[Rfam]
RNA sequence: GGAGGAGGGCCCUCCGGAAUCACCUUACAGGAGGAGGUUUCAAACCACCUUAAGCGGCUCUUGUCAAAAGCCUGGGUCGUGAGCGUUAAGGAAAAGGCACUUUUAAAAGUGUCAGGU
Numbered sequence: 001g002g003a004g005g006a007g008g009g010c011c012c013u014c015c016g017g018a019a020u021c022a023c024c025u026u027a028c029a030g031g032a033g034g035a036g037g038u039u040u041c042a043a044a045c046c047a048c049c050u051u052a053a054g055c056g057g058c059u060c061u062u063g064u065c066a067a068a069a070g071c072c073u074g075g076g077u078c079g080u081g082a083g084c085g086u087u088a089a090g091g092a093a094a095a096g097g098c099a100c101u102u103u104u105a106a107a108a109g110u111g112u113c114a115g116g117u
Base pairs, nucleotide, nucleotide: 001015002014003013004012005011016041017040018039019038020037021036023034024033025032026031046116048091049090050089051088052087053086054080055079057077058076059075063071064070096113097112098111099110100109101108